[Rfam]
RNA: Eukaryotic small subunit ribosomal RNA, nucleotides 1895 to 2004
Organism: Dothidotthia symphoricarpi
RNA sequence: ACACUGACAGAGCCAACAAGUUCUUCACCUUGGCUAGAAGGUCUAGGUAAUCUUGUUAAACUCUGUUGUGCUAGGGAUAGAGCAUUGCAAUUAUUGCUCUUUAAUAAGGA
Numbered sequence: 001a002c003a004c005u006g007a008c009a010g011a012g013c014c015a016a017c018a019a020g021u022u023c024u025u026c027a028c029c030u031u032g033g034c035u036a037g038a039a040g041g042u043c044u045a046g047g048u049a050a051u052c053u054u055g056u057u058a059a060a061c062u063c064u065g066u067u068g069u070g071c072u073a074g075g076g077a078u079a080g081a082g083c084a085u086u087g088c089a090a091u092u093a094u095u096g097c098u099c100u101u102u103a104a105u106a107a108g109g110a
Stems, first nucleotide, its partner, number of pairs: 006067007018054003028047002032043004074105001079100006